[Rfam]
RNA sequence: ACGCGGCUUAGUUAGGAGGCGCACAUCAAUCGGAACCAAAUUCACGUUUGUUUCCAUUCAGAGAAAGGCCUUUUGAAGGGACUCUCUGCAUUCUCACAUCAAUUGUUCCUCAAGCAGCCUUUCACAUUU
Numbered sequence: 001a002c003g004c005g006g007c008u009u010a011g012u013u014a015g016g017a018g019g020c021g022c023a024c025a026u027c028a029a030u031c032g033g034a035a036c037c038a039a040a041u042u043c044a045c046g047u048u049u050g051u052u053u054c055c056a057u058u059c060a061g062a063g064a065a066a067g068g069c070c071u072u073u074u075g076a077a078g079g080g081a082c083u084c085u086c087u088g089c090a091u092u093c094u095c096a097c098a099u100c101a102a103u104u105g106u107u108c109c110u111c112a113a114g115c116a117g118c119c120u121u122u123c124a125c126a127u128u129u
Base pairs, nucleotide, nucleotide: 004021005020007018008017009016033054034053035052037050063123064122065121066120067119068118069117072114073113074112075111077110078109079108080107081106082105085102